[Rfam]
RNA sequence: GUCUGAUUAAGGCAAACCCGGCGAAAGACGGGGACGCAAAGCCGAUGGUCUAACGGACUCCGGUCCCAUGACAGCAUGGCUGCCAGA
Numbered sequence: 001g002u003c004u005g006a007u008u009a010a011g012g013c014a015a016a017c018c019c020g021g022c023g024a025a026a027g028a029c030g031g032g033g034a035c036g037c038a039a040a041g042c043c044g045a046u047g048g049u050c051u052a053a054c055g056g057a058c059u060c061c062g063g064u065c066c067c068a069u070g071a072c073a074g075c076a077u078g079g080c081u082g083c084c085a086g087a
Stems, first nucleotide, its partner, number of pairs: 012037002017032004022027001040081004045077003048072003055066004
RNA: c-di-GMP-I riboswitch aptamer
Organism: Thioalkalivibrio denitrificans